[Rfam]
Bacterial large subunit ribosomal RNA: a 588-nucleotide part of an RNA from uncultured bacterium HF0070_02E07. The sequence is in the family's curated seed alignment.
RNA sequence: UCUACGGCUAGACGGAAAGACCCCGUGCACCUUUACUACAUCUUUUCAUUGUAUACCGGAGAACGUUGUGCAGGAUAGGUGGGAGCUUAUGAGACCUUGGCGCAAGCCAAUUGUUGAAGCGCCCUUGAGAUACCACUCUUCUUUGUUCCGGAUGCUAACCUCUUUCUCCAAAGAGAAGGGGGAACAGUGAAUGGUUGGUAGUUUGGCUGGGGUGGCCGCCUCCCAAAGAGUAACGGAGGCGCACAAAGGUAAGCUCAAGCUGGAAUAAAAUCAGCUGUAGAGCGCAAUAGCAUAUGCUUGCCUGACUGUGAGACAGACAUGUCGAGCAGAGACGCAAGUCGGUUAUAGUGAUCCGGUGGUCCGUCAUGGAACGGCCAUCGCUCAACGAAUAAAAGGUACGCCGGGGAUAACAGGCUAAUGACUCUUAAGAGCUCAUAUCGAUGGAGUUGUUUGGCACCUCGAUGUCGACUCAUCACAUCCUGGAGCUGGAGAAGGUUCCAAGGGUUCGUCUGUUCGCCGAAUAAAGUGGUACGUGAGUUGGGUUUAGAACGUCGUGAGACAGUUUGGUCCCUAUCUACCGUAGAUAAU
Numbered sequence: 001u002c003u004a005c006g007g008c009u010a011g012a013c014g015g016a017a018a019g020a021c022c023c024c025g026u027g028c029a030c031c032u033u034u035a036c037u038a039c040a041u042c043u044u045u046u047c048a049u050u051g052u053a054u055a056c057c058g059g060a061g062a063a064c065g066u067u068g069u070g071c072a073g074g075a076u077a078g079g080u081g082g083g084a085g086c087u088u089a090u091g092a093g094a095c096c097u098u099g100g101c102g103c104a105a106g107c108c109a110a111u112u113g114u115u116g117a118a119g120c121g122c123c124c125u126u127g128a129g130a131u132a133c134c135a136c137u138c139u140u141c142u143u144u145g146u147u148c149c150g151g152a153u154g155c156u157a158a159c160c161u162c163u164u165u166c167u168c169c170a171a172a173g174a175g176a177a178g179g180g181g182g183a184a185c186a187g188u189g190a191a192u193g194g195u196u197g198g199u200a201g202u203u204u205g206g207c208u209g210g211g212g213u214g215g216c217c218g219c220c221u222c223c224c225a226a227a228g229a230g231u232a233a234c235g236g237a238g239g240c241g242c243a244c245a246a247a248g249g250u251a252a253g254c255u256c257a258a259g260c261u262g263g264a265a266u267a268a269a270a271u272c273a274g275c276u277g278u279a280g281a282g283c284g285c286a287a288u289a290g291c292a293u294a295u296g297c298u299u300g301c302c303u304g305a306c307u308g309u310g311a312g313a314c315a316g317a318c319a320u321g322u323c324g325a326g327c328a329g330a331g332a333c334g335c336a337a338g339u340c341g342g343u344u345a346u347a348g349u350g351a352u353c354c355g356g357u358g359g360u361c362c363g364u365c366a367u368g369g370a371a372c373g374g375c376c377a378u379c380g381c382u383c384a385a386c387g388a389a390u391a392a393a394a395g396g397u398a399c400g401c402c403g404g405g406g407a408u409a410a411c412a413g414g415c416u417a418a419u420g421a422c423u424c425u426u427a428a429g430a431g432c433u434c435a436u437a438u439c440g441a442u443g444g445a446g447u448u449g450u451u452u453g454g455c456a457c458c459u460c461g462a463u464g465u466c467g468a469c470u471c472a473u474c475a476c477a478u479c480c481u482g483g484a485g486c487u488g489g490a491g492a493a494g495g496u497u498c499c500a501a502g503g504g505u506u507c508g509u510c511u512g513u514u515c516g517c518c519g520a521a522u523a524a525a526g527u528g529g530u531a532c533g534u535g536a537g538u539u540g541g542g543u544u545u546a547g548a549a550c551g552u553c554g555u556g557a558g559a560c561a562g563u564u565u566g567g568u569c570c571c572u573a574u575c576u577a578c579c580g581u582a583g584a585u586a587a588u
Stems, first nucleotide, its partner, number of pairs: 001584007010576003014571002022405004027401002029397005035202004042194002045191004051155004056150001058148003062144002065141001068138001078137005085120003094114002097110005159182009205217004218240006241386001243343002249301006255281002258276006282291002306329004312323003331340003354380007362373002414455003418452001419449007429439002466541001467539004471533001472530005479504002482499006506520003510516001547565004551560003